[Rfam]
RNA sequence: AGUCUUGAAAAAAAUUUCGUACGGUGUGCGUCGUAACAACAAACAGCGUCUGAAAAGUUUUGUGAAUUUCCAAUUCUAUACAAAGCAAAGUGAAAAUAUCUGUAUUUUUACCUUUAUUCUGUGAAUAGAACGAAAAACAUACAUACAAGGUG
Numbered sequence: 001a002g003u004c005u006u007g008a009a010a011a012a013a014a015u016u017u018c019g020u021a022c023g024g025u026g027u028g029c030g031u032c033g034u035a036a037c038a039a040c041a042a043a044c045a046g047c048g049u050c051u052g053a054a055a056a057g058u059u060u061u062g063u064g065a066a067u068u069u070c071c072a073a074u075u076c077u078a079u080a081c082a083a084a085g086c087a088a089a090g091u092g093a094a095a096a097u098a099u100c101u102g103u104a105u106u107u108u109u110a111c112c113u114u115u116a117u118u119c120u121g122u123g124a125a126u127a128g129a130a131c132g133a134a135a136a137a138c139a140u141a142c143a144u145a146c147a148a149g150g151u152g
Stems, first nucleotide, its partner, number of pairs: 002151006015055005021049003025045003030040002061141004067135004074130006081123002084120002087115004091110008